[Rfam]
RNA sequence: UAUAGUGUCCUAAGUCAAACUUCUCUAAGUUUGAUCAUUUUUUUAGAAAACUAUAUUAAUAUGUACACAUUCAAAUAAAUGCACCAUUAAGACAUUUCAUGGAGAAUUUAAUAAAACUAAUUUGAUCUUGUAGAUGUUGAUGUAUUUUUCUAUAAACUUGGUCAAAAUUGAGAAGUCUGAUUUAGCACAAAGCUA
Numbered sequence: 001u002a003u004a005g006u007g008u009c010c011u012a013a014g015u016c017a018a019a020c021u022u023c024u025c026u027a028a029g030u031u032u033g034a035u036c037a038u039u040u041u042u043u044u045a046g047a048a049a050a051c052u053a054u055a056u057u058a059a060u061a062u063g064u065a066c067a068c069a070u071u072c073a074a075a076u077a078a079a080u081g082c083a084c085c086a087u088u089a090a091g092a093c094a095u096u097u098c099a100u101g102g103a104g105a106a107u108u109u110a111a112u113a114a115a116a117c118u119a120a121u122u123u124g125a126u127c128u129u130g131u132a133g134a135u136g137u138u139g140a141u142g143u144a145u146u147u148u149u150c151u152a153u154a155a156a157c158u159u160g161g162u163c164a165a166a167a168u169u170g171a172g173a174a175g176u177c178u179g180a181u182u183u184a185g186c187a188c189a190a191a192g193c194u195a
Base pairs, nucleotide, nucleotide: 006189007188008187010185011184012183013182014181015180016179017178019176020175021174022173023172024171025170030166031165032164033163034162044152045151046150047149048148049147050146054142055141056140058138059137060136061135062134064132065131066130067129071125072124073123074122075121076120

Rfam assigns this 195-nucleotide RNA from Sorghum bicolor to the family "MIR1435 microRNA precursor family". The family has 3 seed sequences and 1,765 matches in Rfam 15.1. The organism belongs to Sorghum, within Eukaryota. It scores 109 bits against the family's covariance model. Its family is annotated with miRNA-mediated post-transcriptional gene silencing and RISC complex in the Gene Ontology.